[Rfam]
Overview:
glmS glucosamine-6-phosphate activated ribozyme aptamer: a 159-nucleotide sequence from Culicoidibacter larvae.

RNA sequence: AUUAUUUUUAAAGCGCCAGGACUCGGCAGAAUUGUUGAGUUGACGAGGAGUUGGGAUUAUCGAAAGAUUCGGCGGAUGUCCCAAAACGUGCCUGCACACGAACAGCAGUGACAAAGUCGCUAAGUGAUUAGCGGAACAAAACAUUGUUGAAAUUGUAGA
Numbered sequence: 001a002u003u004a005u006u007u008u009u010a011a012a013g014c015g016c017c018a019g020g021a022c023u024c025g026g027c028a029g030a031a032u033u034g035u036u037g038a039g040u041u042g043a044c045g046a047g048g049a050g051u052u053g054g055g056a057u058u059a060u061c062g063a064a065a066g067a068u069u070c071g072g073c074g075g076a077u078g079u080c081c082c083a084a085a086a087c088g089u090g091c092c093u094g095c096a097c098a099c100g101a102a103c104a105g106c107a108g109u110g111a112c113a114a115a116g117u118c119g120c121u122a123a124g125u126g127a128u129u130a131g132c133g134g135a136a137c138a139a140a141a142c143a144u145u146g147u148u149g150a151a152a153u154u155g156u157a158g159a
Stems, first nucleotide, its partner, number of pairs: 020041008051084005060072004089098002103149007117134007
This entry contains a glucosamine-6-phosphate activated ribozyme that is found in the mRNA for GlmS. GlmS is an enzyme that uses fructose-6-phosphate and glutamine to generate glucosamine-6-phosphate. The ribozyme catalyses self cleavage of the glmS mRNA that is thought to regulate GlmS activity. Rfam classes the family as a riboswitch.